[Rfam]
RNA sequence: ACGUUCGGGUAAUCGCUGGACCAGAUUUCUGGUUUAGAGGAAAGUCCAUGCUCGCACGGAUCUGAGAUGACCGUAAUGAUCGUGCCUGGCCAAAAAAUAAGCCAGGGUAGCUUGGUUUGCUCUAUGAGCUUACUGGGCUAACGGCAGGGAACGCACCUAAGUCCUUUGGAUAUGGUGUUAAUACCUUGAAAGUGCCACAGUGACGUAGUCCCAAUGGAAACUGCGGGAGUGGAACGAGGUAAACCCCACGAGCGAGAAACCCAAAUUAUGGUAGGGGAGUUUCCCAUUUCGGAAUUGAACGAAUGGGAGAACAAGAAGCUAAGGCUUUUUGUAGAUAGAUGAUUACCACCGGUGUACGAGGCGAAUAGCCGCUUGCAGUACUAAGGAACAGAACAUGGCUUACAGAA
Numbered sequence: 001a002c003g004u005u006c007g008g009g010u011a012a013u014c015g016c017u018g019g020a021c022c023a024g025a026u027u028u029c030u031g032g033u034u035u036a037g038a039g040g041a042a043a044g045u046c047c048a049u050g051c052u053c054g055c056a057c058g059g060a061u062c063u064g065a066g067a068u069g070a071c072c073g074u075a076a077u078g079a080u081c082g083u084g085c086c087u088g089g090c091c092a093a094a095a096a097a098u099a100a101g102c103c104a105g106g107g108u109a110g111c112u113u114g115g116u117u118u119g120c121u122c123u124a125u126g127a128g129c130u131u132a133c134u135g136g137g138c139u140a141a142c143g144g145c146a147g148g149g150a151a152c153g154c155a156c157c158u159a160a161g162u163c164c165u166u167u168g169g170a171u172a173u174g175g176u177g178u179u180a181a182u183a184c185c186u187u188g189a190a191a192g193u194g195c196c197a198c199a200g201u202g203a204c205g206u207a208g209u210c211c212c213a214a215u216g217g218a219a220a221c222u223g224c225g226g227g228a229g230u231g232g233a234a235c236g237a238g239g240u241a242a243a244c245c246c247c248a249c250g251a252g253c254g255a256g257a258a259a260c261c262c263a264a265a266u267u268a269u270g271g272u273a274g275g276g277g278a279g280u281u282u283c284c285c286a287u288u289u290c291g292g293a294a295u296u297g298a299a300c301g302a303a304u305g306g307g308a309g310a311a312c313a314a315g316a317a318g319c320u321a322a323g324g325c326u327u328u329u330u331g332u333a334g335a336u337a338g339a340u341g342a343u344u345a346c347c348a349c350c351g352g353u354g355u356a357c358g359a360g361g362c363g364a365a366u367a368g369c370c371g372c373u374u375g376c377a378g379u380a381c382u383a384a385g386g387a388a389c390a391g392a393a394c395a396u397g398g399c400u401u402a403c404a405g406a407a
Base pairs, nucleotide, nucleotide: 004407005406006405007403008347009346010345011344012343013342014341016037017036018035019034020033021032042401043400044399046398047397048396049395050394051256052255053254054253055252056074057073058072059071061070062069080251081250082249083248084247085106086105087104088103089102090101107142108140109139110138111137112136113135114134115133116132143246144245146186147185148184154177155176156175157174161171162170163169192244193243194240195239196238209228210227211226212225216221260276261275262274280310281309282308283307284306285305286304311332312331313330314329315328316327317326318325319324349386350385354381355380356379357378